RNA sequence: AAACCGCACCCGACUAAUCACGCGCGGCAGGAGCGGGGGAACCAGGUAAGCCGCUGUUCCGGAUCCCUUUCGGGAUCUUCGAAACGGGACAGCUCGGGGUGAAGCCGUACAGGUGCCGUUGACCGGCACCGGCCAUGGCCGGACAUCUCCAGUCCGAACCCGACAGCUCACCUCGCCGGCGCCGGAGAGGAAAUUC
Numbered sequence: 001a002a003a004c005c006g007c008a009c010c011c012g013a014c015u016a017a018u019c020a021c022g023c024g025c026g027g028c029a030g031g032a033g034c035g036g037g038g039g040a041a042c043c044a045g046g047u048a049a050g051c052c053g054c055u056g057u058u059c060c061g062g063a064u065c066c067c068u069u070u071c072g073g074g075a076u077c078u079u080c081g082a083a084a085c086g087g088g089a090c091a092g093c094u095c096g097g098g099g100u101g102a103a104g105c106c107g108u109a110c111a112g113g114u115g116c117c118g119u120u121g122a123c124c125g126g127c128a129c130c131g132g133c134c135a136u137g138g139c140c141g142g143a144c145a146u147c148u149c150c151a152g153u154c155c156g157a158a159c160c161c162g163a164c165a166g167c168u169c170a171c172c173u174c175g176c177c178g179g180c181g182c183c184g185g186a187g188a189g190g191a192a193a194u195u196c
Stems, first nucleotide, its partner, number of pairs: 004031002033176006043096001097161003105138004141155004
RNA: c-di-AMP riboswitch aptamer (ydaO/yuaA leader)
Organism: Streptomyces sp. ISL-66